[Rfam]
RNA sequence: GGCGAUAAAUGAUGUCGUGGAAUAGAUGCAGCGGACCCGGGGGCAGUACCCGGCGGCUCCACCACAAAUCCCGGAUUUCCGGGGCUCGUGACGGGGCCGAACCAGGAUCGACGUGUAUUCAAAGACGAUGUUUUUGCCCGGCCUGAAUGCGCCGUUAAACCGUUCGAACCUACAAGUGCCAACGAUAACGAGGCGCUCGCGAUUGCCGCGUAA
Dot-bracket structure: (((((.........((((........(((.(((...(((((.......)))))(((((((................................)))))))............)))))).......)))).....)))))((((........))))...........................................................
Numbered sequence: 001g002g003c004g005a006u007a008a009a010u011g012a013u014g015u016c017g018u019g020g021a022a023u024a025g026a027u028g029c030a031g032c033g034g035a036c037c038c039g040g041g042g043g044c045a046g047u048a049c050c051c052g053g054c055g056g057c058u059c060c061a062c063c064a065c066a067a068a069u070c071c072c073g074g075a076u077u078u079c080c081g082g083g084g085c086u087c088g089u090g091a092c093g094g095g096g097c098c099g100a101a102c103c104a105g106g107a108u109c110g111a112c113g114u115g116u117a118u119u120c121a122a123a124g125a126c127g128a129u130g131u132u133u134u135u136g137c138c139c140g141g142c143c144u145g146a147a148u149g150c151g152c153c154g155u156u157a158a159a160c161c162g163u164u165c166g167a168a169c170c171u172a173c174a175a176g177u178g179c180c181a182a183c184g185a186u187a188a189c190g191a192g193g194c195g196c197u198c199g200c201g202a203u204u205g206c207c208g209c210g211u212a213a
Stems, first nucleotide, its partner, number of pairs: 001138005015128004027117003031114003037053005054099007139154004